The family of this 51-nucleotide RNA sequence from Nitrosospira briensis is "nhaA-I RNA".
RNA sequence: GGGUGCGCACACGUCGUGUGUAGCAGGUACAGCGUUGGUCGGGCCGCCACG
Numbered sequence: 001g002g003g004u005g006c007g008c009a010c011a012c013g014u015c016g017u018g019u020g021u022a023g024c025a026g027g028u029a030c031a032g033c034g035u036u037g038g039u040c041g042g043g044c045c046g047c048c049a050c051g
Stems, first nucleotide, its partner, number of pairs: 005024002009021004033051003037048003

Acidobacteria, Alphaproteobacteria, Betaproteobacteria and Gammaproteobacteria, Verrucomicrobia, cand. division NC10. It scores 45 bits against the family's covariance model. The base pairs follow the family's consensus structure, which is taken from published work.